[Rfam]
RNA sequence: UUCGAGUUUCAUCUACAAAUGGAUAGAGUUUUUGUCUUAGUGUAUACGAAGCGUUUAAACAAAUUAGCAAUACACCAUGUCUUGCCUUAGCAAUACAUGGGGUAGUUCUACUUU
Number, nucleotide and partner (000 for none) at each position: 001u000002u000003c000004g000005a000006g000007u000008u023009u022010c021011a020012u019013c000014u000015a000016c000017a000018a000019a012020u011021g010022g009023a008024u000025a000026g000027a000028g000029u000030u000031u000032u000033u000034g000035u000036c000037u000038u000039a000040g000041u000042g000043u000044a000045u000046a000047c000048g000049a000050a000051g000052c000053g000054u000055u000056u000057a000058a000059a000060c000061a114062a113063a112064u000065u110066a109067g108068c000069a106070a000071u104072a103073c102074a000075c100076c099077a098078u000079g096080u095081c000082u093083u092084g000085c000086c000087u000088u000089a000090g000091c000092a083093a082094u000095a080096c079097a000098u077099g076100g075101g000102g073103u072104a071105g000106u069107u000108c067109u066110a065111c000112u063113u062114u061
Source information: Shown here is a 114-nucleotide sequence from Musa balbisiana, a member of the family "Plastid-psbA-1 3UTR RNA". Clan: Plastid-psbA 3UTR RNA clan. By type it is a cis-regulatory element. The match comes from Rfam's covariance-model search (79 bits).